The family of this 259-nucleotide RNA sequence is "FuFi-1 RNA". The sequence is in the family's curated seed alignment. By type it is a small RNA.
RNA sequence: UACUAAGGGCAUCUUUUAUUGGGCUGACCUAACAGCCUUAAGUGAAGCGGUUCAUCAUAGAACUAAUUGCUGAUAACGAUUAGGUUGCUUUAUAUUGUUUGAAGGGGACUUCAACAGUUAACUGGGUUCUAUAGUUAAGGCUUCCGCAAGAAAUCUUAUGUGCGCUGUCUAUUUAACUGUCAAUAUAAUGUAAAUGCAGUGAGCUUUUGGUAAACAAAUAGGGUAAAUUACUUCCGUAUUAUCAGUGCGGAAGUUUUUU
Number, nucleotide and partner (000 for none) at each position: 001u049002a000003c047004u046005a000006a000007g043008g000009g000010c000011a000012u000013c000014u000015u000016u000017u000018a000019u000020u000021g000022g037023g036024c035025u034026g033027a000028c222029c221030u220031a219032a000033c026034a025035g024036c023037c022038u000039u000040a000041a000042g000043u007044g000045a000046a004047g003048c000049g001050g204051u203052u202053c201054a200055u199056c000057a000058u000059a000060g000061a000062a000063c083064u082065a081066a080067u079068u078069g077070c000071u244072g243073a242074u241075a240076a239077c069078g068079a067080u066081u065082a064083g063084g000085u193086u192087g191088c190089u000090u188091u187092a186093u185094a184095u183096u182097g181098u000099u000100u000101g000102a000103a000104g000105g000106g000107g000108a000109c000110u000111u000112c000113a000114a000115c000116a000117g000118u000119u000120a000121a000122c000123u000124g000125g000126g000127u000128u000129c000130u000131a000132u000133a000134g000135u000136u000137a000138a000139g000140g000141c000142u000143u000144c000145c000146g000147c000148a000149a000150g000151a000152a000153a000154u000155c000156u000157u000158a000159u000160g000161u000162g000163c000164g000165c000166u000167g000168u000169c000170u000171a000172u000173u000174u000175a000176a000177c000178u000179g000180u000181c097182a096183a095184u094185a093186u092187a091188a090189u000190g088191u087192a086193a085194a000195u000196g000197c000198a000199g055200u054201g053202a052203g051204c050205u000206u000207u000208u000209g000210g000211u000212a000213a000214a000215c000216a000217a000218a000219u031220a030221g029222g028223g000224u000225a000226a000227a257228u000229u000230a254231c253232u252233u251234c250235c249236g248237u247238a246239u076240u075241a074242u073243c072244a071245g000246u238247g237248c236249g235250g234251a233252a232253g231254u230255u000256u000257u227258u000259u000